RNA sequence: GUGUUUUUUCAUGGUAAUAGAUUUAAGGUUAAAGAAAUUUCCGGGUGGUCUGUGAAGACCGCCCGGUUUUUUGUA
Number, nucleotide and partner (000 for none) at each position: 001g000002u000003g000004u000005u000006u000007u000008u000009u000010c000011a000012u000013g000014g000015u000016a000017a000018u000019a000020g000021a000022u000023u000024u000025a000026a000027g000028g000029u000030u000031a000032a000033a000034g000035a000036a000037a000038u000039u000040u000041c000042c000043g000044g063045g062046u061047g060048g059049u058050c057051u000052g000053u000054g000055a000056a000057g050058a049059c048060c047061g046062c045063c044064c000065g000066g000067u000068u000069u000070u000071u000072u000073g000074u000075a000
The family of this 75-nucleotide RNA sequence from Prevotella sp. CAG:1031 is "Bacteroidetes FopS (family of paralogous sRNAs)". The source organism's lineage runs through Bacteria, Pseudomonadati, Bacteroidia, Bacteroidales and Prevotella. Rfam describes the family as follows. The RNA-binding protein RbpB and BTncRNA_FopS sRNA are involved in the post-transcription regulation of polysaccharide utilisation loci (PUL). FopS sRNAs function as post-transcriptional repressors by binding to the vicinity of the start codon of the first mRNA of target PUL polycistrons, typically corresponding to the cognate SusC homolog, impeding translation of the respective glycan transporter. Gene Ontology term of the family: sRNA-mediated gene silencing.